[Rfam]
This 125-nucleotide RNA from Diaphorobacter ruginosibacter belongs to the Rfam family "Y RNA-like". The source organism's lineage runs through Bacteria, Pseudomonadati, Betaproteobacteria, Burkholderiales and Diaphorobacter. A reference for the family is Chen et al. (2013), "An RNA degradation machine sculpted by Ro autoantigen and noncoding RNA", Cell. Rfam's curators write: In Deinococcus radiodurans Rsr is tethered via Y RNA to the exoribonuclease PNPase and channels single-stranded RNA into the PNPase cavity. A search with the family's covariance model found it, with a score of 69 bits. The base pairs follow the family's consensus structure, which is taken from published work.
Nucleotides: 125
Stems, first nucleotide, its partner, number of pairs: 002121006013107007023096001038095002044060005051087001061074005077093004
Number, partner (000 for none) and nucleotide at each position: 001000g002121c003120u004119g005118c006117g007116a008000a009000u010000g011000c012000a013107g014106g015105u016104g017103g018102a019101a020000u021000u022000a023096c024000a025000g026000c027000u028000u029000u030000g031000g032000a033000u034000g035000c036000u037000c038095g039094u040000g041000g042000u043000c044060g045059c046058g047057g048056g049000u050000u051087c052000g053000a054000a055000u056048c057047c058046c059045g060044c061074c062073g063072g064071u065070c066000g067000a068000g069000a070065g071064a072063c073062c074061g075000u076000a077093g078092c079091u080090c081000a082000g083000c084000c085000c086000g087051g088000u089000a090080g091079a092078g093077c094039a095038c096023g097000a098000a099000u100000a101019u102018u103017u104016c105015a106014c107013c108000c109000c110000u111000c112000c113000u114000u115000g116007u117006c118005g119004c120003g121002g122000c123000g124000g125000g